A member of the RNA family "MIR2587 microRNA precursor family" from Medicago truncatula, 94 nucleotides long. The base pairs follow the family's consensus structure, which was predicted with RNAalifold. The literature on the family includes a 2009 paper in Plant Cell by Lelandais-Briere et al., "Genome-wide Medicago truncatula small RNA analysis revealed novel microRNAs and isoforms differentially regulated in roots and nodules". The family has 5 seed sequences and 242 matches in Rfam 15.1.
RNA sequence: GUGUCAUGAUCAUCGUUGACCUUUCAUAUAAACCCUGCAAUAGCAUUGCAGCUUGUGUGGGGUUCAUACAACGGUCAACAGAUACCCUUGACAU
Numbered sequence: 001g002u003g004u005c006a007u008g009a010u011c012a013u014c015g016u017u018g019a020c021c022u023u024u025c026a027u028a029u030a031a032a033c034c035c036u037g038c039a040a041u042a043g044c045a046u047u048g049c050a051g052c053u054u055g056u057g058u059g060g061g062g063u064u065c066a067u068a069c070a071a072c073g074g075u076c077a078a079c080a081g082a083u084a085c086c087c088u089u090g091a092c093a094u
Base pairs, nucleotide, nucleotide: 001094002093003092004091005090006089008086010084013081015079016078017077018076019075020074021073023071024070027068028067029066031064032063033062034061035060036059037058038057039056042053043052